[Rfam]
RNA sequence: AAGCCAGCUAGUGAGUCUGCUUACCUGGAUGUGUUUCUGCAGAAGUUUAGAAAAAGCUGGCAAUAGUAAUGCCAUAUUAUAAGCCUUAAGGACACCGAAGUCAUUAAGGUUCCCAUUAGUUCCCGAAGUC
Numbered sequence: 001a002a003g004c005c006a007g008c009u010a011g012u013g014a015g016u017c018u019g020c021u022u023a024c025c026u027g028g029a030u031g032u033g034u035u036u037c038u039g040c041a042g043a044a045g046u047u048u049a050g051a052a053a054a055a056g057c058u059g060g061c062a063a064u065a066g067u068a069a070u071g072c073c074a075u076a077u078u079a080u081a082a083g084c085c086u087u088a089a090g091g092a093c094a095c096c097g098a099a100g101u102c103a104u105u106a107a108g109g110u111u112c113c114c115a116u117u118a119g120u121u122c123c124c125g126a127a128g129u130c
Stems, first nucleotide, its partner, number of pairs: 003061005016043005071123001074120001083110007091102003
RNA: Small nucleolar RNA SNORA33